[Rfam]
RNA sequence: GCCGAUAUAGCUCAGUUGGUAGAGCAGCGCAUUCGUAAUGCGAAGGUCGUAGGUUCGACUCCUAUUAUCGGCA
Numbered sequence: 001g002c003c004g005a006u007a008u009a010g011c012u013c014a015g016u017u018g019g020u021a022g023a024g025c026a027g028c029g030c031a032u033u034c035g036u037a038a039u040g041c042g043a044a045g046g047u048c049g050u051a052g053g054u055u056c057g058a059c060u061c062c063u064a065u066u067a068u069c070g071g072c073a
Stems, first nucleotide, its partner, number of pairs: 001072007010025004028042004049065005